[Rfam]
RNA sequence: CCGGCCGUCCGGCCCGCCGCUGUGCCCGCCUCCGGCGGGUGCAGAGGAAAGUCCGGACUCGCGAGGGCCCGGGUGGAGACAUCCGGGUCCGGAAAGGCCGCUCAGGCUAACAACCUGAGGGGCGGUGUGGCGCAAGCCCGCCGCCACGUCAAGUGCAACAGAGAGUAGACCAGCCGAUGGCCCGGGGGAGUUUCCCUGGGCACAGGUGAUGGGUGAAAGGGUGGGGUAAGAGCCCACCGGCGGUAUCCCGUGAGGGACCGGCCAGGUAAACUACCGGUGCGAGCAAGCCAAAUUGUCCGGAAGAUUCCGGACUGGUAGGCGCGGCCUCUCUCAGAGAGGCCCGGGGGGACGGCCUCCCGGAGAUGGAUGGCGGGAUAGAACAGAAUCCGGCUUACGGGGCGGCCGGGCGC
Numbered sequence: 001c002c003g004g005c006c007g008u009c010c011g012g013c014c015c016g017c018c019g020c021u022g023u024g025c026c027c028g029c030c031u032c033c034g035g036c037g038g039g040u041g042c043a044g045a046g047g048a049a050a051g052u053c054c055g056g057a058c059u060c061g062c063g064a065g066g067g068c069c070c071g072g073g074u075g076g077a078g079a080c081a082u083c084c085g086g087g088u089c090c091g092g093a094a095a096g097g098c099c100g101c102u103c104a105g106g107c108u109a110a111c112a113a114c115c116u117g118a119g120g121g122g123c124g125g126u127g128u129g130g131c132g133c134a135a136g137c138c139c140g141c142c143g144c145c146a147c148g149u150c151a152a153g154u155g156c157a158a159c160a161g162a163g164a165g166u167a168g169a170c171c172a173g174c175c176g177a178u179g180g181c182c183c184g185g186g187g188g189a190g191u192u193u194c195c196c197u198g199g200g201c202a203c204a205g206g207u208g209a210u211g212g213g214u215g216a217a218a219g220g221g222u223g224g225g226g227u228a229a230g231a232g233c234c235c236a237c238c239g240g241c242g243g244u245a246u247c248c249c250g251u252g253a254g255g256g257a258c259c260g261g262c263c264a265g266g267u268a269a270a271c272u273a274c275c276g277g278u279g280c281g282a283g284c285a286a287g288c289c290a291a292a293u294u295g296u297c298c299g300g301a302a303g304a305u306u307c308c309g310g311a312c313u314g315g316u317a318g319g320c321g322c323g324g325c326c327u328c329u330c331u332c333a334g335a336g337a338g339g340c341c342c343g344g345g346g347g348g349a350c351g352g353c354c355u356c357c358c359g360g361a362g363a364u365g366g367a368u369g370g371c372g373g374g375a376u377a378g379a380a381c382a383g384a385a386u387c388c389g390g391c392u393u394a395c396g397g398g399g400c401g402g403c404c405g406g407g408c409g410c
Base pairs, nucleotide, nucleotide: 001406002405003404004403005402006401007400008399009398010397011395013374014373015372016371017370018369020044021043022042023041024040025039026038027037028036049393050392051391053390054389055388056387057386058283059282060281061280065306066305070279071278074276075275120147121145122144123143124142125141126140127139148274149273153271154270155267156266170212171211173207174206175205178202179201181199220238221237222236223235224234225233240262241260242259243258244257247256248255249254287320288319289318295312296311297310298309299308300307
The record is a 410-nucleotide sequence from Rubrobacter taiwanensis, which matches "Bacterial RNase P class A" in Rfam. A search with the family's covariance model found it, with a score of 111 bits. The family's RNA type in Rfam is ribozyme. Lineage of the source: Bacteria > Rubrobacteria > Rubrobacterales > Rubrobacteraceae > Rubrobacter.